Overview: The record is a 90-nucleotide RNA sequence from Anisodus acutangulus, which matches "Small nucleolar RNA snoR8a" in Rfam. Rfam classes the family as a C/D-box small nucleolar RNA. On this family, see Brown et al., RNA 2001: "Multiple snoRNA gene clusters from Arabidopsis". Rfam links the family to the GO terms nucleolus and RNA processing. The family has 7 seed sequences and 956 matches in Rfam 15.1.

RNA sequence: UGGGUUGCGAUGAUUAUAAAACAAUUCCUCGUUCUGAAUGUUGUUACCAUGGCAUGACAGACUAUUUUACACCCAUAGAAUAUGAGCACC
Numbered sequence: 001u002g003g004g005u006u007g008c009g010a011u012g013a014u015u016a017u018a019a020a021a022c023a024a025u026u027c028c029u030c031g032u033u034c035u036g037a038a039u040g041u042u043g044u045u046a047c048c049a050u051g052g053c054a055u056g057a058c059a060g061a062c063u064a065u066u067u068u069a070c071a072c073c074c075a076u077a078g079a080a081u082a083u084g085a086g087c088a089c090c
Stems, first nucleotide, its partner, number of pairs: 003090002006088002